[Rfam]
RNA sequence: GGUCGGGUGGAGAGGCGUAAUACAACACCCGCAAGGGGAAUAUGCCCAGAGCUUCUUAUUUGGCUCAGUUGACACCCGACCGCCAGCUA
Numbered sequence: 001g002g003u004c005g006g007g008u009g010g011a012g013a014g015g016c017g018u019a020a021u022a023c024a025a026c027a028c029c030c031g032c033a034a035g036g037g038g039a040a041u042a043u044g045c046c047c048a049g050a051g052c053u054u055c056u057u058a059u060u061u062g063g064c065u066c067a068g069u070u071g072a073c074a075c076c077c078g079a080c081c082g083c084c085a086g087c088u089a
Base pairs, nucleotide, nucleotide: 001081002080003079004078005077006076007075008074009073014046015045016044018042019041028037029036030035049066050065051064052063053062
Shown here is an 89-nucleotide sequence from Escherichia coli, a member of the family "sRNA-Xcc1". For this family Rfam cites "sRNA-Xcc1, an integron-encoded transposon- and plasmid-transferred trans-acting sRNA, is under the positive control of the key virulence regulators HrpG and HrpX of Xanthomonas campestris pathovar campestris" (Chen et al., RNA Biol, 2011). Rfam's curators put it in the seed alignment. NCBI's taxonomy places the organism under Bacteria, Pseudomonadati, Gammaproteobacteria, Enterobacteriaceae, Escherichia coli O157:H7. The family's consensus secondary structure was predicted with RNAalifold.